[Rfam]
RNA sequence: AGUGUCUUCAGGUAAUGUAGUAGCUGUUGAUCCCAUCAGUACUGCAGGUUCAAGAGGCACGAGA
Number, nucleotide and partner (000 for none) at each position: 001a000002g060003u059004g058005u057006c056007u000008u000009c000010a000011g000012g000013u000014a000015a000016u046017g045018u044019a043020g042021u041022a040023g000024c000025u000026g000027u035028u000029g000030a000031u000032c000033c000034c000035a027036u000037c000038a000039g000040u022041a021042c020043u019044g018045c017046a016047g000048g000049u000050u000051c000052a000053a000054g000055a000056g006057g005058c004059a003060c002061g000062a000063g000064a000
RNA: Trypanosomatid snoRNA TB9Cs3H2
Organism: Trypanosoma theileri